[Rfam]
The family of this 69-nucleotide sequence from delta proteobacterium NaphS2 is "int-alpA RNA". About the family: Acidobacteria (1 example), Planctomycetes (1 example), Proteobacteria. The family's consensus secondary structure is taken from published work.

RNA sequence: UCCGGGGAUAGGGUCGCUCCUGAAAAGCGGGAUUCCCUGUCCCGCCUUCCCCGGAUUUUCCAAACAGGG
Numbered sequence: 001u002c003c004g005g006g007g008a009u010a011g012g013g014u015c016g017c018u019c020c021u022g023a024a025a026a027g028c029g030g031g032a033u034u035c036c037c038u039g040u041c042c043c044g045c046c047u048u049c050c051c052c053g054g055a056u057u058u059u060c061c062a063a064a065c066a067g068g069g
Stems, first nucleotide, its partner, number of pairs: 001055008011021003027045005035069006